[Rfam]
RNA sequence: UACGCGAUGCCGAAGUCGGGUCGCGUAAUAACCCAACUCGCUGAUUUUCAGGAGAUGUACCCAUGACU
Numbered sequence: 001u002a003c004g005c006g007a008u009g010c011c012g013a014a015g016u017c018g019g020g021u022c023g024c025g026u027a028a029u030a031a032c033c034c035a036a037c038u039c040g041c042u043g044a045u046u047u048u049c050a051g052g053a054g055a056u057g058u059a060c061c062c063a064u065g066a067c068u
Stems, first nucleotide, its partner, number of pairs: 001027008010019003031056001037054003041051004

This 68-nucleotide RNA from Pseudomonas japonica belongs to the Rfam family "Repression of heat shock gene expression (ROSE) element". A reference for the family is Krajewski et al. (2013), "Short ROSE-Like RNA Thermometers Control IbpA Synthesis in Pseudomonas Species", PLoS One. The base pairs follow the family's consensus structure. Its family is annotated with regulation of translation and response to temperature stimulus in the Gene Ontology. It scores 72 bits against the family's covariance model.